[Rfam]
Source information: Rfam assigns this 68-nucleotide RNA sequence from Propithecus coquereli to the family "Small nucleolar RNA SNORD77". Rfam links the family to the GO terms nucleolus and RNA processing. The family's consensus secondary structure was predicted with RNAalifold. NCBI's taxonomy places the organism under Eukaryota, Craniata, Euarchontoglires, Primates, Propithecus. The family has 21 seed sequences and 396 matches in Rfam 15.1.

RNA sequence: ACACUAUGAUGGCUGUGUAGUUCAGCAGAUGGAAUCAUGAAGAGAUUUACCAUUUGUCUGAUGUAUCU
Numbered sequence: 001a002c003a004c005u006a007u008g009a010u011g012g013c014u015g016u017g018u019a020g021u022u023c024a025g026c027a028g029a030u031g032g033a034a035u036c037a038u039g040a041a042g043a044g045a046u047u048u049a050c051c052a053u054u055u056g057u058c059u060g061a062u063g064u065a066u067c068u
Stems, first nucleotide, its partner, number of pairs: 001066001003064002006038005013028004043055004